[Rfam]
RNA: MIR164 microRNA precursor family
Organism: Protea cynaroides
RNA sequence: UGGAGAAAGGGAGCACGUGCAAGGUUGGAGAAGCUCGUGGCUCUUUGCACGUGCCCUGCUUCUCCAAC
Numbered sequence: 001u002g003g004a005g006a007a008a009g010g011g012a013g014c015a016c017g018u019g020c021a022a023g024g025u026u027g028g029a030g031a032a033g034c035u036c037g038u039g040g041c042u043c044u045u046u047g048c049a050c051g052u053g054c055c056c057u058g059c060u061u062c063u064c065c066a067a068c
Stems, first nucleotide, its partner, number of pairs: 001066007010057002013054012028035001
Dot-bracket structure: (((((((..((.((((((((((((...(......).......)))))))))))).))..)))))))..